[Rfam]
RNA: RAGATH-18 RNA
Organism: Niallia endozanthoxylica
RNA sequence: CCUGUGGAGUGUUAGACCAACCGUAGUAGCUAGUUUUUGGCCAGGCGGAACACGUAGAAGCAGGAA
Numbered sequence: 001c002c003u004g005u006g007g008a009g010u011g012u013u014a015g016a017c018c019a020a021c022c023g024u025a026g027u028a029g030c031u032a033g034u035u036u037u038u039g040g041c042c043a044g045g046c047g048g049a050a051c052a053c054g055u056a057g058a059a060g061c062a063g064g065a066a
Base pairs, nucleotide, nucleotide: 001064002063003062004061005060009053010052011051012050013049021048022047023046029041030040031039